[Rfam]
RNA sequence: GGACCUUUAGCUCAGUUGGUUAGAGCGUUUCGUUGACAUCGAAAAGGUCACUGGUUCGAGUCCAGUAAGGUCCA
Numbered sequence: 001g002g003a004c005c006u007u008u009a010g011c012u013c014a015g016u017u018g019g020u021u022a023g024a025g026c027g028u029u030u031c032g033u034u035g036a037c038a039u040c041g042a043a044a045a046g047g048u049c050a051c052u053g054g055u056u057c058g059a060g061u062c063c064a065g066u067a068a069g070g071u072c073c074a
Base pairs, nucleotide, nucleotide: 001073002072003071004070005069006068007067010026011025012024013023028044029043030042031041032040050066051065052064053063054062